[Rfam]
RNA sequence: AAAGAUCGAUACCGAGGGGGGCAUGACGCCCCGGAGAAUUUCCUGCUCACGCAGGCAGCCUGUACCGCGUACAGUCUGAAACUCCCUACACCUCAAAACCUGCCACCCCGGCGUGAAGGUAUCGUUCU
Numbered sequence: 001a002a003a004g005a006u007c008g009a010u011a012c013c014g015a016g017g018g019g020g021g022c023a024u025g026a027c028g029c030c031c032c033g034g035a036g037a038a039u040u041u042c043c044u045g046c047u048c049a050c051g052c053a054g055g056c057a058g059c060c061u062g063u064a065c066c067g068c069g070u071a072c073a074g075u076c077u078g079a080a081a082c083u084c085c086c087u088a089c090a091c092c093u094c095a096a097a098a099c100c101u102g103c104c105a106c107c108c109c110g111g112c113g114u115g116a117a118g119g120u121a122u123c124g125u126u127c128u
Stems, first nucleotide, its partner, number of pairs: 002128001004126002007124007018032005033085004042055005056078003061073005
This 128-nucleotide RNA sequence from Klebsiella ornithinolytica belongs to the Rfam family "EFASI RNA". The family's consensus secondary structure is taken from published work. The organism belongs to Klebsiella ornithinolytica, within Bacteria.